[Rfam]
RNA sequence: GGCUGGUCCAAAGGUGGUGGUGAGUUAUCUGAAUUAAUUGUUCACUCAGUUACAGAUCAAACUCCUUACUCUACUUUUCCCCUCCUUCUCACUACUGCACUUGACUGGUCUUAA
Numbered sequence: 001g002g003c004u005g006g007u008c009c010a011a012a013g014g015u016g017g018u019g020g021u022g023a024g025u026u027a028u029c030u031g032a033a034u035u036a037a038u039u040g041u042u043c044a045c046u047c048a049g050u051u052a053c054a055g056a057u058c059a060a061a062c063u064c065c066u067u068a069c070u071c072u073a074c075u076u077u078u079c080c081c082c083u084c085c086u087u088c089u090c091a092c093u094a095c096u097g098c099a100c101u102u103g104a105c106u107g108g109u110c111u112u113a114a
Stems, first nucleotide, its partner, number of pairs: 001110008010102002014098002016093005022088001044076001048072002
RNA: Y RNA
Organism: Pongo abelii